[Rfam]
RNA: MIR6274 microRNA precursor family
RNA sequence: GGAUACCAUUUUUUGCUAUCUUCGACUAAUAAUGCAAUGACAUGUAGGAUAACUUUUUCACAUGUCAUUAUAUUAUUGGUUGGGAAUAGCAAAAUAGUGUUAUCG
Numbered sequence: 001g002g003a004u005a006c007c008a009u010u011u012u013u014u015g016c017u018a019u020c021u022u023c024g025a026c027u028a029a030u031a032a033u034g035c036a037a038u039g040a041c042a043u044g045u046a047g048g049a050u051a052a053c054u055u056u057u058u059c060a061c062a063u064g065u066c067a068u069u070a071u072a073u074u075a076u077u078g079g080u081u082g083g084g085a086a087u088a089g090c091a092a093a094a095u096a097g098u099g100u101u102a103u104c105g
Base pairs, nucleotide, nucleotide: 002104003103004102005101011094012093013092014091015090016089017088018087019086021084022083023082024081025080026079027078028077029076030075031074032073033072034071036069037068038067039066040065041064042063043062044061045060047058048057049056